[Rfam]
RNA sequence: GAUAAAGAUACCUGUAAGUCGCUUUGGAUAAAAGCGUCUGCUAAAUGGCAUAUU
Numbered sequence: 001g002a003u004a005a006a007g008a009u010a011c012c013u014g015u016a017a018g019u020c021g022c023u024u025u026g027g028a029u030a031a032a033a034g035c036g037u038c039u040g041c042u043a044a045a046u047g048g049c050a051u052a053u054u
Stems, first nucleotide, its partner, number of pairs: 013043001014041003020036006
Dot-bracket structure: ............((((...((((((.....))))))..))).)...........
Shown here is a 54-nucleotide RNA sequence from Coregonus sp. 'balchen', a member of the family "UnaL2 LINE 3' element". About the family: The eel long interspersed element (LINE) UnaL2 and its partner short interspersed element (SINE) share a conserved 3' tail containing a stem-loop that is critical for their retrotransposition. The family's RNA type in Rfam is cis-regulatory element. The base pairs follow the family's consensus structure, which is taken from published work. NCBI's taxonomy places the organism under Eukaryota, Teleostomi, Euteleostomi, Euteleosteomorpha, Coregonus.